The record is a 110-nucleotide RNA from Cytospora schulzeri, which matches "tRNA" in Rfam. Pairs were carried over by alignment from the consensus structure, which is taken from published work. The literature on the family includes a 1993 paper in Trends Biochem Sci by Hou, "The tertiary structure of tRNA and the development of the genetic code". Rfam's curators write: Transfer RNA (tRNA) molecules are approximately 80 nucleotides in length. Gene Ontology term of the family: triplet codon-amino acid adaptor activity. The source organism's lineage runs through Eukaryota, Pezizomycotina, Sordariomycetes, Cytosporaceae and Cytospora. By type it is a transfer RNA.
RNA sequence: GCCUUCUUGGCCAAGCGGUAAGGCGUCGCACUCGUACCCAGUCGAUCUGACACGACAGAUUGCUAGGACGAUCAAUGCGAAGAUCGACGGUUCGAUUCCGUCAGGAGGCA
Numbered sequence: 001g002c003c004u005u006c007u008u009g010g011c012c013a014a015g016c017g018g019u020a021a022g023g024c025g026u027c028g029c030a031c032u033c034g035u036a037c038c039c040a041g042u043c044g045a046u047c048u049g050a051c052a053c054g055a056c057a058g059a060u061u062g063c064u065a066g067g068a069c070g071a072u073c074a075a076u077g078c079g080a081a082g083a084u085c086g087a088c089g090g091u092u093c094g095a096u097u098c099c100g101u102c103a104g105g106a107g108g109c110a
Stems, first nucleotide, its partner, number of pairs: 001109007010024003026080005086102005